[Rfam]
RNA sequence: GGCAGGAUAAGGCGUUUACGCCGCACCCGGCAUUUGAGCAGGAUGCCUGAUGCGACGCUGAUAGCGUCUUAUCAGGCC
Numbered sequence: 001g002g003c004a005g006g007a008u009a010a011g012g013c014g015u016u017u018a019c020g021c022c023g024c025a026c027c028c029g030g031c032a033u034u035u036g037a038g039c040a041g042g043a044u045g046c047c048u049g050a051u052g053c054g055a056c057g058c059u060g061a062u063a064g065c066g067u068c069u070u071a072u073c074a075g076g077c078c
Stems, first nucleotide, its partner, number of pairs: 002031002005028002008025001011022004045077008054068005
The family of this 78-nucleotide RNA sequence from Escherichia coli is "Nucleoid-associated noncoding RNA 4 (CssrE)". On this family, see Qian et al., MBio 2015: "A New Noncoding RNA Arranges Bacterial Chromosome Organization". The base pairs follow the family's consensus structure, which is taken from published work. It is annotated as a small RNA. From the family's description: In E. coli small RNA transcribed from repeated extragenic palindromic element (REP325) called nucleoid-associated ncRNA 4 (nRNA4) collaborates HU protein in condensing the DNA. The secondary structure but not the sequence of the RNA is important in nucleoid condensation. Also identified in Shigella as CssrE. The source organism's lineage runs through Bacteria, Pseudomonadota, Gammaproteobacteria, Enterobacterales and Escherichia coli O139:H28.